[Rfam]
RNA sequence: AGUGUGAGGCCACAGCAGAAGUGCUCAAGGCAUGGCCCUGUCUUCUUCUAAUGAGUCUGUGAAUUCUGCU
Number, nucleotide and partner (000 for none) at each position: 001a000002g000003u000004g000005u000006g038007a000008g037009g036010c035011c034012a000013c000014a070015g069016c068017a067018g066019a065020a064021g033022u032023g031024c000025u000026c000027a000028a000029g000030g000031c023032a022033u021034g011035g010036c009037c008038c006039u000040g000041u000042c059043u000044u000045c000046u055047u054048c053049u000050a000051a000052u000053g048054a047055g046056u000057c000058u000059g042060u000061g000062a000063a000064u020065u019066c018067u017068g016069c015070u014
Shown here is a 70-nucleotide sequence from Crocodylus porosus, a member of the family "Mammalian CPEB3 ribozyme". The mammalian CPEB3 ribozyme is a self cleaving RNA located in the second intron of the CPEB3 gene which belongs to a family of genes regulating messenger RNA polyadenylation. The organism belongs to Crocodylus, within Eukaryota. The base pairs follow the family's consensus structure, which is taken from published work.